Rfam assigns this 96-nucleotide RNA from Solanum tuberosum to the family "Small nucleolar RNA Z221/R21b". The family's RNA type in Rfam is C/D-box small nucleolar RNA.

[Rfam]
RNA sequence: GAGCUGUGAUGAGAUUUAGAGAUUGUCAUGCACCACUCUUACAAGUUUUAAUUUGAGUGAUGAUAAAUUUCUCAUACCCAUUUUGUUUCUGAGCUC
Numbered sequence: 001g002a003g004c005u006g007u008g009a010u011g012a013g014a015u016u017u018a019g020a021g022a023u024u025g026u027c028a029u030g031c032a033c034c035a036c037u038c039u040u041a042c043a044a045g046u047u048u049u050a051a052u053u054u055g056a057g058u059g060a061u062g063a064u065a066a067a068u069u070u071c072u073c074a075u076a077c078c079c080a081u082u083u084u085g086u087u088u089c090u091g092a093g094c095u096c
Stems, first nucleotide, its partner, number of pairs: 001096004
Description: On this family, see Chen et al., Nucleic Acids Res 2003: "The high diversity of snoRNAs in plants: identification and comparative study of 120 snoRNA genes from Oryza sativa".